[Rfam]
RNA sequence: GCGUACUUAAUGAUUAAGCAAUUCCUUUUUCAUAAAGAGUUUCAUUCUUAUUAAGUAUUAUGUUGUGUUUGCAUAUUGUUCGGGAAACCGAACGCAAGUAACUUAGUUACUUAUUUAACUUCCUGUAUAUUUUUAAACCUAAUUUUGGGUUCGUAAUGCACCGCUCUUUGUGAGCGGUGUUUUUUUAU
Numbered sequence: 001g002c003g004u005a006c007u008u009a010a011u012g013a014u015u016a017a018g019c020a021a022u023u024c025c026u027u028u029u030u031c032a033u034a035a036a037g038a039g040u041u042u043c044a045u046u047c048u049u050a051u052u053a054a055g056u057a058u059u060a061u062g063u064u065g066u067g068u069u070u071g072c073a074u075a076u077u078g079u080u081c082g083g084g085a086a087a088c089c090g091a092a093c094g095c096a097a098g099u100a101a102c103u104u105a106g107u108u109a110c111u112u113a114u115u116u117a118a119c120u121u122c123c124u125g126u127a128u129a130u131u132u133u134u135a136a137a138c139c140u141a142a143u144u145u146u147g148g149g150u151u152c153g154u155a156a157u158g159c160a161c162c163g164c165u166c167u168u169u170g171u172g173a174g175c176g177g178u179g180u181u182u183u184u185u186u187a188u
Stems, first nucleotide, its partner, number of pairs: 009049002016046002020042001024039001026037004077094007097111006128155003158180007
RNA: GcvB RNA